[Rfam]
RNA sequence: GGAGCCACAGGGAGGGAUACCACUCCAGCCUUAGGAAAAGAAACCUGCCACGGGAAUCUUGGAGAUUGGCAACCAUACAAUGACUUA
Numbered sequence: 001g002g003a004g005c006c007a008c009a010g011g012g013a014g015g016g017a018u019a020c021c022a023c024u025c026c027a028g029c030c031u032u033a034g035g036a037a038a039a040g041a042a043a044c045c046u047g048c049c050a051c052g053g054g055a056a057u058c059u060u061g062g063a064g065a066u067u068g069g070c071a072a073c074c075a076u077a078c079a080a081u082g083a084c085u086u087a
Base pairs, nucleotide, nucleotide: 002086003085004084006082007081011078013076015074016073018071020069021068022067024065025064029062030061038060039059040058041057044054045053046052047051